[Rfam]
RNA sequence: CGGGCCGUGUACUCCCAGAUGGCAUCGGGGUCGAGGAUCGCCUGGUCGCCGAAGUAGGCGCCGUCCGCGAGCGUGCCGAGCUCGGCGUCGUCCCCGUACGGACCCGUGCCGAUCUUCUCGACCCUGCCGUGGGCCAGCAGGAACACCUCGUCGGCCGGGCUGCCGAAGGAGGCGAGCACGCCUCCCGGCUCGAACUCCCGCUGUUCGCAGCGCGCGGCCAGCUCGGUGAGCACCUCCUGGUCGUCGUAGGUGCGCAGCGCCGGCAGUUCGCCGAGCUCCGCCGGGAUGACCUGGACGCGGUCACCGGUCUUGACGAAGGUGACGCGGCCGUCUCCCACGGAGUAGCUGAGCCUGCGGUUCACCCGGUACGUGCCGCCCUGCACGUUCACCCACGGCAGCAUGCGCAGCAGCCAUCGUGAGCUGAUCUCCUGCAUCUGCGGUGCGGACUUGGUGGUCGUGGCCAGGUUCCGCGCCGCGGAUGUGCCGAGACUCUUCUGCGGCUGAUCCU
Numbered sequence: 001c002g003g004g005c006c007g008u009g010u011a012c013u014c015c016c017a018g019a020u021g022g023c024a025u026c027g028g029g030g031u032c033g034a035g036g037a038u039c040g041c042c043u044g045g046u047c048g049c050c051g052a053a054g055u056a057g058g059c060g061c062c063g064u065c066c067g068c069g070a071g072c073g074u075g076c077c078g079a080g081c082u083c084g085g086c087g088u089c090g091u092c093c094c095c096g097u098a099c100g101g102a103c104c105c106g107u108g109c110c111g112a113u114c115u116u117c118u119c120g121a122c123c124c125u126g127c128c129g130u131g132g133g134c135c136a137g138c139a140g141g142a143a144c145a146c147c148u149c150g151u152c153g154g155c156c157g158g159g160c161u162g163c164c165g166a167a168g169g170a171g172g173c174g175a176g177c178a179c180g181c182c183u184c185c186c187g188g189c190u191c192g193a194a195c196u197c198c199c200g201c202u203g204u205u206c207g208c209a210g211c212g213c214g215c216g217g218c219c220a221g222c223u224c225g226g227u228g229a230g231c232a233c234c235u236c237c238u239g240g241u242c243g244u245c246g247u248a249g250g251u252g253c254g255c256a257g258c259g260c261c262g263g264c265a266g267u268u269c270g271c272c273g274a275g276c277u278c279c280g281c282c283g284g285g286a287u288g289a290c291c292u293g294g295a296c297g298c299g300g301u302c303a304c305c306g307g308u309c310u311u312g313a314c315g316a317a318g319g320u321g322a323c324g325c326g327g328c329c330g331u332c333u334c335c336c337a338c339g340g341a342g343u344a345g346c347u348g349a350g351c352c353u354g355c356g357g358u359u360c361a362c363c364c365g366g367u368a369c370g371u372g373c374c375g376c377c378c379u380g381c382a383c384g385u386u387c388a389c390c391c392a393c394g395g396c397a398g399c400a401u402g403c404g405c406a407g408c409a410g411c412c413a414u415c416g417u418g419a420g421c422u423g424a425u426c427u428c429c430u431g432c433a434u435c436u437g438c439g440g441u442g443c444g445g446a447c448u449u450g451g452u453g454g455u456c457g458u459g460g461c462c463a464g465g466u467u468c469c470g471c472g473c474c475g476c477g478g479a480u481g482u483g484c485c486g487a488g489a490c491u492c493u494u495c496u497g498c499g500g501c502u503g504a505u506c507c508u
Stems, first nucleotide, its partner, number of pairs: 007389003011385002016380001018328001021325001025322003031316002038313003041307002045305001048302001049300003054233002059228005065111001067109002075103001080099001083096003118221001120219001122217002126213002130209001132206002135203003140198002143196001149192002154189006161178002235295003240290006249282004254278001256277003261270002329342001331340002354376004360372003391431002394428002397425001399423002403418003407415001437476004442471005447465006477507002481501002484499001487496002